RNA: ZMP/ZTP riboswitch aptamer (pfl RNA motif)
RNA sequence: GGUAGGGCGUGUGACUGGCGGAUAGUGGAGCAACCACAGGGAGCACGCAGUACCAUGAACUAUUUUGAGCCGACCGCCUGGGCACGCAUG
Numbered sequence: 001g002g003u004a005g006g007g008c009g010u011g012u013g014a015c016u017g018g019c020g021g022a023u024a025g026u027g028g029a030g031c032a033a034c035c036a037c038a039g040g041g042a043g044c045a046c047g048c049a050g051u052a053c054c055a056u057g058a059a060c061u062a063u064u065u066u067g068a069g070c071c072g073a074c075c076g077c078c079u080g081g082g083c084a085c086g087c088a089u090g
Stems, first nucleotide, its partner, number of pairs: 003052002007048006015040002017078005025037004067085001069083003